[Rfam]
RNA: 7SK RNA
RNA sequence: AAAAAGGAGGGUGAUUUGGCUGUGAUGUCUGUCACCCCAUUGAUUGGCAGGGUUGACUUGGCUGAUCUGACUGGCUGGGUGGGUGUCCUCUUUCUCCCUCACUGCUCCAUGUGCAUCCCUCCCAAAGCUGUGCGCUCAGUUGAAGAGGACAACUUUCCCCAACAGAGACAUACCAUUCAUCAGUUAAGGGUAUAUGGUAGCUGUGCUCCCCUGCUAGAACCUUCAAACAAGCUCAAGGUCCAUUUCUAGGAGAAUGUAGGAUAGCCAAGCUUCCAAGAUUGCAGACAUAUCUAAGUUGAGGCACUGCAUUGGGCAGUCUGCCAGCGUGUUU
Numbered sequence: 001a002a003a004a005a006g007g008a009g010g011g012u013g014a015u016u017u018g019g020c021u022g023u024g025a026u027g028u029c030u031g032u033c034a035c036c037c038c039a040u041u042g043a044u045u046g047g048c049a050g051g052g053u054u055g056a057c058u059u060g061g062c063u064g065a066u067c068u069g070a071c072u073g074g075c076u077g078g079g080u081g082g083g084u085g086u087c088c089u090c091u092u093u094c095u096c097c098c099u100c101a102c103u104g105c106u107c108c109a110u111g112u113g114c115a116u117c118c119c120u121c122c123c124a125a126a127g128c129u130g131u132g133c134g135c136u137c138a139g140u141u142g143a144a145g146a147g148g149a150c151a152a153c154u155u156u157c158c159c160c161a162a163c164a165g166a167g168a169c170a171u172a173c174c175a176u177u178c179a180u181c182a183g184u185u186a187a188g189g190g191u192a193u194a195u196g197g198u199a200g201c202u203g204u205g206c207u208c209c210c211c212u213g214c215u216a217g218a219a220c221c222u223u224c225a226a227a228c229a230a231g232c233u234c235a236a237g238g239u240c241c242a243u244u245u246c247u248a249g250g251a252g253a254a255u256g257u258a259g260g261a262u263a264g265c266c267a268a269g270c271u272u273c274c275a276a277g278a279u280u281g282c283a284g285a286c287a288u289a290u291c292u293a294a295g296u297u298g299a300g301g302c303a304c305u306g307c308a309u310u311g312g313g314c315a316g317u318c319u320g321c322c323a324g325c326g327u328g329u330u331u
Stems, first nucleotide, its partner, number of pairs: 003106001007100005013093002018090002024087010035074002038069002042067004046062001048060001119167003122139001125136001127135002140162003147158003200270003206264002210260005221252004227247001229245003293331003297326002300322003303317005